[Rfam]
RNA sequence: UGAUUUUAAACGGGAGAGACCGCUACAUGUAGUGGCGCCGAAGGUAUAAUAAGUAAAACUUAGAAGGACUCAGGCAAAAGGACCGUUUGAGGGAC
Numbered sequence: 001u002g003a004u005u006u007u008a009a010a011c012g013g014g015a016g017a018g019a020c021c022g023c024u025a026c027a028u029g030u031a032g033u034g035g036c037g038c039c040g041a042a043g044g045u046a047u048a049a050u051a052a053g054u055a056a057a058a059c060u061u062a063g064a065a066g067g068a069c070u071c072a073g074g075c076a077a078a079a080g081g082a083c084c085g086u087u088u089g090a091g092g093g094a095c
Stems, first nucleotide, its partner, number of pairs: 006090008020035004037075003040071002044069002050062002